[Rfam]
RNA sequence: UAAGUAAGAUAAGUGAUCGCAGCUACAAGUGUCGAAAGACCGUAGGUGAGGAAAGUCCGGGCUUCAUAGGGCAGGAUGCCGGAUAACGUCCGGUGGAGGUGACUCCAAGGCCAGUGCAACAGAAAUAUACCGCCAGUAUUUUACUGGUAAGGGUGGAAGGGUAGAGUAAGAGCCUACCGCCUUCUUGGUAACAAGGAGGGCACAUGUAAACCCCAUUCGAAGCAAAACCGAAUAAAAGCGAUAACGUGGCCCGCUAGCUUUAGGUAGGUUGCUUGAGGUGAUUGGUGACAAUCAUCCUAGAUAGAUGAUCACUCACGACAUAACCCGGCUUAUCGUCUUGCUUAUUUU
Numbered sequence: 001u002a003a004g005u006a007a008g009a010u011a012a013g014u015g016a017u018c019g020c021a022g023c024u025a026c027a028a029g030u031g032u033c034g035a036a037a038g039a040c041c042g043u044a045g046g047u048g049a050g051g052a053a054a055g056u057c058c059g060g061g062c063u064u065c066a067u068a069g070g071g072c073a074g075g076a077u078g079c080c081g082g083a084u085a086a087c088g089u090c091c092g093g094u095g096g097a098g099g100u101g102a103c104u105c106c107a108a109g110g111c112c113a114g115u116g117c118a119a120c121a122g123a124a125a126u127a128u129a130c131c132g133c134c135a136g137u138a139u140u141u142u143a144c145u146g147g148u149a150a151g152g153g154u155g156g157a158a159g160g161g162u163a164g165a166g167u168a169a170g171a172g173c174c175u176a177c178c179g180c181c182u183u184c185u186u187g188g189u190a191a192c193a194a195g196g197a198g199g200g201c202a203c204a205u206g207u208a209a210a211c212c213c214c215a216u217u218c219g220a221a222g223c224a225a226a227a228c229c230g231a232a233u234a235a236a237a238g239c240g241a242u243a244a245c246g247u248g249g250c251c252c253g254c255u256a257g258c259u260u261u262a263g264g265u266a267g268g269u270u271g272c273u274u275g276a277g278g279u280g281a282u283u284g285g286u287g288a289c290a291a292u293c294a295u296c297c298u299a300g301a302u303a304g305a306u307g308a309u310c311a312c313u314c315a316c317g318a319c320a321u322a323a324c325c326c327g328g329c330u331u332a333u334c335g336u337c338u339u340g341c342u343u344a345u346u347u348u
Base pairs, nucleotide, nucleotide: 001344002343003342004341005340006339007338008337009336010335011333012313013312014311015310016309017308018307020048021047023045024044025043026042053331054330055329057328058327059326060325061324062222063221064220065219069252070251071250072249074218075217076216077215078214079093080092081091082090083089094108095106096105097104098103109213110212114211115210116207117206118205130152131151132148133147134146135145136144137143138142160178161177162176163175164174179201180199181198182197183196184195185194186193187192226270227269228268229267235261236260237259238258239257246254247253277296278295279294280293281292282291283290284289
Rfam assigns this 348-nucleotide RNA sequence from Anaerosacchariphilus polymeriproducens to the family "Bacterial RNase P class A". The match comes from Rfam's covariance-model search (300 bits). On this family, see Frank and Pace, Annu Rev Biochem 1998: "Ribonuclease P: unity and diversity in a tRNA processing ribozyme". Rfam classes the family as a ribozyme.